Rfam assigns this 84-nucleotide RNA from Alphaproteobacteria bacterium HT1-32 to the family "chrB-a RNA".
[Rfam]
RNA sequence: CGCAUGGGGCCUGCGGAUGCCCCGUGAGGCGUCAGCCCAAAUACCGCAUCCUUUAACCUUUCCAGAGAAAGGGGAUGCAUUAUG
Numbered sequence: 001c002g003c004a005u006g007g008g009g010c011c012u013g014c015g016g017a018u019g020c021c022c023c024g025u026g027a028g029g030c031g032u033c034a035g036c037c038c039a040a041a042u043a044c045c046g047c048a049u050c051c052u053u054u055a056a057c058c059u060u061u062c063c064a065g066a067g068a069a070a071g072g073g074g075a076u077g078c079a080u081u082a083u084g
Stems, first nucleotide, its partner, number of pairs: 005024006046078008